[Rfam]
RNA: L17-Actino-Proteobacteria ribosomal protein leader
Organism: Nonomuraea muscovyensis
RNA sequence: CAGCAGCGACGGCGGUCCGGCCCGACUCCGGUACCUGGUACGGCCGGGGCGG
Numbered sequence: 001c002a003g004c005a006g007c008g009a010c011g012g013c014g015g016u017c018c019g020g021c022c023c024g025a026c027u028c029c030g031g032u033a034c035c036u037g038g039u040a041c042g043g044c045c046g047g048g049g050c051g052g
Stems, first nucleotide, its partner, number of pairs: 001019001003017001004015001006013002022052003026049007